[Rfam]
RNA sequence: GGCGUAAAGGGUCCGUCGGCGUCUUUAUAAGUCGGUUGUUUAAGACUGAGGCUCAACUUCAGAGAGGCAAACGAUACUAUAAGGAUAGAGUCUGUUCGAGGAAACUAGAAUUCUUGGUGGAGGGGUGAAAUCCGUAGAUAUCAAGAGGAAUACCAUGCGCGAAGGCAGGUUUCUAGGACAUGACUGACGCUCAGGGACGAAAGCUUGGGUAGCAAAAGGGAUUAGAGACCCCUGUAGUCCAAGCCGUAAACGCUCCUUGCUAGUUGCUCGAGUUUACUUGAGUGGCGUAAGCUAACGCGUUAAGCAAGGCGCCUGGGGAGUACGACCGCAAGGUUAAAACUCAAAGGAAU
Numbered sequence: 001g002g003c004g005u006a007a008a009g010g011g012u013c014c015g016u017c018g019g020c021g022u023c024u025u026u027a028u029a030a031g032u033c034g035g036u037u038g039u040u041u042a043a044g045a046c047u048g049a050g051g052c053u054c055a056a057c058u059u060c061a062g063a064g065a066g067g068c069a070a071a072c073g074a075u076a077c078u079a080u081a082a083g084g085a086u087a088g089a090g091u092c093u094g095u096u097c098g099a100g101g102a103a104a105c106u107a108g109a110a111u112u113c114u115u116g117g118u119g120g121a122g123g124g125g126u127g128a129a130a131u132c133c134g135u136a137g138a139u140a141u142c143a144a145g146a147g148g149a150a151u152a153c154c155a156u157g158c159g160c161g162a163a164g165g166c167a168g169g170u171u172u173c174u175a176g177g178a179c180a181u182g183a184c185u186g187a188c189g190c191u192c193a194g195g196g197a198c199g200a201a202a203g204c205u206u207g208g209g210u211a212g213c214a215a216a217a218g219g220g221a222u223u224a225g226a227g228a229c230c231c232c233u234g235u236a237g238u239c240c241a242a243g244c245c246g247u248a249a250a251c252g253c254u255c256c257u258u259g260c261u262a263g264u265u266g267c268u269c270g271a272g273u274u275u276a277c278u279u280g281a282g283u284g285g286c287g288u289a290a291g292c293u294a295a296c297g298c299g300u301u302a303a304g305c306a307a308g309g310c311g312c313c314u315g316g317g318g319a320g321u322a323c324g325a326c327c328g329c330a331a332g333g334u335u336a337a338a339a340c341u342c343a344a345a346g347g348a349a350u
Stems, first nucleotide, its partner, number of pairs: 001313003009310001011198004018191003022085007030078002032074003036070005046062006089185003093180005100174007107151001111147008122133003156167001159166002203244006212238002217233004255309006263286010291298002315342003324335004
RNA: Bacterial small subunit ribosomal RNA, nucleotides 523 to 872